Shown here is a 223-nucleotide RNA sequence from Tritrichomonas foetus, a member of the family "RNase MRP". The family has 66 seed sequences and 3,510 matches in Rfam 15.1. Pairs were carried over by alignment from the consensus structure, which is taken from published work. About the family: RNase MRP is an enzymatically active ribonucleoprotein with two distinct roles in eukaryotes. A reference for the family is Schmitt et al. (1993), "Secondary structure of RNase MRP RNA as predicted by phylogenetic comparison", FASEB J. By type it is a ribozyme.
[Rfam]
RNA sequence: CUUGAUCUGAGAGAAUUCGGAGAGGGCUACAUACUGAAAGACUUGUUCUUUCUAACUCCCUCGGGAAAGUCCCCAGACAACUGCAGAGAGUGCGGGCUGUGAAUGCAACCAAUGGCUUUUGAUGAGCUUUUUUGCGAUUUUCGCCAUUGUUUUUGUCUGUAUACAGAGAAAUCGAAUUGGGUCUUUCGAGACUUAACUCAAUGGGGCUCACUCCUUGGAUCAG
Numbered sequence: 001c002u003u004g005a006u007c008u009g010a011g012a013g014a015a016u017u018c019g020g021a022g023a024g025g026g027c028u029a030c031a032u033a034c035u036g037a038a039a040g041a042c043u044u045g046u047u048c049u050u051u052c053u054a055a056c057u058c059c060c061u062c063g064g065g066a067a068a069g070u071c072c073c074c075a076g077a078c079a080a081c082u083g084c085a086g087a088g089a090g091u092g093c094g095g096g097c098u099g100u101g102a103a104u105g106c107a108a109c110c111a112a113u114g115g116c117u118u119u120u121g122a123u124g125a126g127c128u129u130u131u132u133u134g135c136g137a138u139u140u141u142c143g144c145c146a147u148u149g150u151u152u153u154u155g156u157c158u159g160u161a162u163a164c165a166g167a168g169a170a171a172u173c174g175a176a177u178u179g180g181g182u183c184u185u186u187c188g189a190g191a192c193u194u195a196a197c198u199c200a201a202u203g204g205g206g207c208u209c210a211c212u213c214c215u216u217g218g219a220u221c222a223g
Base pairs, nucleotide, nucleotide: 002223003222004221005220006219007218008217009216010215011214014178015177016176017175018174019173022062023061024060025059026058037051038050039049040048041047068208069207071206072205073204074203082094083093084092085091095110096109098107099106100105112150113149114148120146121145123143124142125141180193181192182191183190184189